RNA sequence: UCUGCCUGACCCACCUAGCCGGGAAUAGUGCACCGUGUUUGUUUCCGGCUUAGUGGGUGUGUCAGAGG
Numbered sequence: 001u002c003u004g005c006c007u008g009a010c011c012c013a014c015c016u017a018g019c020c021g022g023g024a025a026u027a028g029u030g031c032a033c034c035g036u037g038u039u040u041g042u043u044u045c046c047g048g049c050u051u052a053g054u055g056g057g058u059g060u061g062u063c064a065g066a067g068g
Stems, first nucleotide, its partner, number of pairs: 001066004006061001009058006016052002018049011031037001
Rfam assigns this 68-nucleotide sequence from Pteropus vampyrus to the family "mir-1180 microRNA precursor family".
Pairs were carried over by alignment from the consensus structure, which was predicted with RNAalifold.
Taxonomically the source falls in Pteropus (Eukaryota, Euteleostomi, Theria, Pteropodinae).